[Rfam]
This 76-nucleotide RNA sequence from Crocodylus porosus belongs to the Rfam family "Mammalian CPEB3 ribozyme".
RNA sequence: AUAGCAAAUUUGAGGCCGUAGCAGAAGAGCUUACAGUAUGGCCCUGUCAGAUUUCAAAAAAUCUGCAAAUUUUGCU
Numbered sequence: 001a002u003a004g005c006a007a008a009u010u011u012g013a014g015g016c017c018g019u020a021g022c023a024g025a026a027g028a029g030c031u032u033a034c035a036g037u038a039u040g041g042c043c044c045u046g047u048c049a050g051a052u053u054u055c056a057a058a059a060a061a062u063c064u065g066c067a068a069a070u071u072u073u074g075c076u
Base pairs, nucleotide, nucleotide: 012044014043015042016041017040020076021075022074023073024072025071026070027039029037048065049064050063051062052061053060054059